Flavivirus 3'UTR stem loop IV: a 68-nucleotide RNA sequence from Orthoflavivirus murrayense. Pairs were carried over by alignment from the consensus structure, which is taken from published work. From the family's description: Flavivirus 3' stem-loop IV (Flavivirus SLIV) is a conserved RNA that confers resistance to Xrn1 exonuclease. Rfam classes the family as a cis-regulatory element. Rfam's curators put it in the seed alignment. The organism belongs to Orthoflavivirus murrayense, within Viruses. On this family, see Markoff, Adv Virus Res 2003: "5'- and 3'-noncoding regions in flavivirus RNA".
[Rfam]
RNA sequence: GGGUCAGAUCGGCGAAAGUCGCCACUUCGCCGAGGAGUGCAAUCUGUGAGGCCCCAGGAGGACUGGGU
Dot-bracket structure: ..[.(((((((((....)))).((((.(.....).))))].)))))......(((((.....))))).